The family of this 51-nucleotide RNA sequence from Trichocoleus sp. FACHB-262 is "Nitrogen stress-induced RNA 1".
The match comes from Rfam's covariance-model search (57 bits).
[Rfam]
RNA sequence: UGGUAGAUGCACCCUGAUUGUGACCCCUGGCUAUGGCUGGGGGUUUUUUGU
Numbered sequence: 001u002g003g004u005a006g007a008u009g010c011a012c013c014c015u016g017a018u019u020g021u022g023a024c025c026c027c028u029g030g031c032u033a034u035g036g037c038u039g040g041g042g043g044u045u046u047u048u049u050g051u
Stems, first nucleotide, its partner, number of pairs: 002013003024043008

For this family Rfam cites "Heterocyst-specific transcription of NsiR1, a non-coding RNA encoded in a tandem array of direct repeats in cyanobacteria" (Ionescu et al., J Mol Biol, 2010). The base pairs follow the family's consensus structure.